This 67-nucleotide RNA from Sphenodon punctatus belongs to the Rfam family "Small nucleolar RNA SNORD98". The organism belongs to Sphenodon, within Eukaryota. The base pairs follow the family's consensus structure. Its family is annotated with RNA processing and nucleolus in the Gene Ontology.
RNA sequence: GAGUAAUGAUGUUUAAACCUAUUCCAUUGCUGAAAUAUGUUGUUGGAAAAAAAAAAAACCUGAACUC
Numbered sequence: 001g002a003g004u005a006a007u008g009a010u011g012u013u014u015a016a017a018c019c020u021a022u023u024c025c026a027u028u029g030c031u032g033a034a035a036u037a038u039g040u041u042g043u044u045g046g047a048a049a050a051a052a053a054a055a056a057a058a059c060c061u062g063a064a065c066u067c
Stems, first nucleotide, its partner, number of pairs: 001067004